[Rfam]
RNA sequence: GGCCAAUGACUUGAAAUAAUUGUCCGUACCAUCUGAAGCCUAGCGGUUGCUGGUCUACUGAUGCAUCUUUAUUAUGAGGCCU
Numbered sequence: 001g002g003c004c005a006a007u008g009a010c011u012u013g014a015a016a017u018a019a020u021u022g023u024c025c026g027u028a029c030c031a032u033c034u035g036a037a038g039c040c041u042a043g044c045g046g047u048u049g050c051u052g053g054u055c056u057a058c059u060g061a062u063g064c065a066u067c068u069u070u071a072u073u074a075u076g077a078g079g080c081c082u
Stems, first nucleotide, its partner, number of pairs: 001081004

Shown here is an 82-nucleotide RNA from Eragrostis curvula, a member of the family "small nucleolar RNA snoR117". The match comes from Rfam's covariance-model search (43 bits). NCBI's taxonomy places the organism under Eukaryota, Streptophyta, Magnoliopsida, Liliopsida, Eragrostis.